[Rfam]
Shown here is an 83-nucleotide sequence from Ammoniphilus sp. CFH 90114, a member of the family "c-di-GMP-I riboswitch aptamer". The source organism's lineage runs through Bacteria, Bacillota, Bacilli, Caryophanales and Ammoniphilus. The base pairs follow the family's consensus structure, which is taken from published work.
RNA sequence: AUUCGACAAGGGCAAACUCUCUGAAAGGGGAGGACGCAAAGCCACGGGUCUAAGGCAUUAUGCUAUGAUCCCGGGUUUCGACU
Numbered sequence: 001a002u003u004c005g006a007c008a009a010g011g012g013c014a015a016a017c018u019c020u021c022u023g024a025a026a027g028g029g030g031a032g033g034a035c036g037c038a039a040a041g042c043c044a045c046g047g048g049u050c051u052a053a054g055g056c057a058u059u060a061u062g063c064u065a066u067g068a069u070c071c072c073g074g075g076u077u078u079c080g081a082c083u
Base pairs, nucleotide, nucleotide: 012037013036017032018031019030020029021028022027040077041076042075043074045073046072047071048069049068050067055063056062057061